A member of the RNA family "mir-9195 microRNA precursor family" from Cnephaeus nilssonii, 89 nucleotides long. Pairs were carried over by alignment from the consensus structure, which was predicted with RNAalifold. Rfam links the family to the GO terms miRNA-mediated post-transcriptional gene silencing and RISC complex.

[Rfam]
RNA sequence: AGAGGCCCAUCUGUGGCCGGGCGCGGAACGCUUGCCUUGUUGCUGCGGCAAUGAAGCCAGCAUUCCGCCAGGCCGCUCACGCUGCCUGC
Numbered sequence: 001a002g003a004g005g006c007c008c009a010u011c012u013g014u015g016g017c018c019g020g021g022c023g024c025g026g027a028a029c030g031c032u033u034g035c036c037u038u039g040u041u042g043c044u045g046c047g048g049c050a051a052u053g054a055a056g057c058c059a060g061c062a063u064u065c066c067g068c069c070a071g072g073c074c075g076c077u078c079a080c081g082c083u084g085c086c087u088g089c
Stems, first nucleotide, its partner, number of pairs: 004086003013076006021069001023068006030061003034057002039052005